c-di-AMP riboswitch aptamer (ydaO/yuaA leader): a 145-nucleotide RNA sequence from Leptolyngbya sp. BL0902.
Taxonomically the source falls in Leptolyngbya (Bacteria, Bacillati, Cyanobacteriota, Cyanophyceae).

RNA sequence: CAAUUUUAAUGGCUCAAUCUAGCCCAUGGGCUAGAGCGGAGGAACCACUCCUUGGGGCGAAUCUUAGGGCAAGUCCAUUUGCCAGAGAAGGGGAUCUCUCACCCCUAGCCCGUCAGCUAACUCCGUCGGCCCUGAGGGAACAUUC
Numbered sequence: 001c002a003a004u005u006u007u008a009a010u011g012g013c014u015c016a017a018u019c020u021a022g023c024c025c026a027u028g029g030g031c032u033a034g035a036g037c038g039g040a041g042g043a044a045c046c047a048c049u050c051c052u053u054g055g056g057g058c059g060a061a062u063c064u065u066a067g068g069g070c071a072a073g074u075c076c077a078u079u080u081g082c083c084a085g086a087g088a089a090g091g092g093g094a095u096c097u098c099u100c101a102c103c104c105c106u107a108g109c110c111c112g113u114c115a116g117c118u119a120a121c122u123c124c125g126u127c128g129g130c131c132c133u134g135a136g137g138g139a140a141c142a143u144u145c
Stems, first nucleotide, its partner, number of pairs: 011131004018035007036126006046054002055111003063087003090105004